RNA: MIR1520 microRNA precursor family
Organism: Glycine max
RNA sequence: UUCUUAUUGAAUGAUGUUUGUCAUGUGUCAUGUUCUGAUUGGAUGUCAACUCCAUAAAAAAUAAAAUGUAUUAUUAUUUUUAUUGAUCAAUCAGAAUAUGACACGUGACAGUCAUCAUCC
Numbered sequence: 001u002u003c004u005u006a007u008u009g010a011a012u013g014a015u016g017u018u019u020g021u022c023a024u025g026u027g028u029c030a031u032g033u034u035c036u037g038a039u040u041g042g043a044u045g046u047c048a049a050c051u052c053c054a055u056a057a058a059a060a061a062u063a064a065a066a067u068g069u070a071u072u073a074u075u076a077u078u079u080u081u082a083u084u085g086a087u088c089a090a091u092c093a094g095a096a097u098a099u100g101a102c103a104c105g106u107g108a109c110a111g112u113c114a115u116c117a118u119c120c
Stems, first nucleotide, its partner, number of pairs: 020109004025104002029100003033096004038091003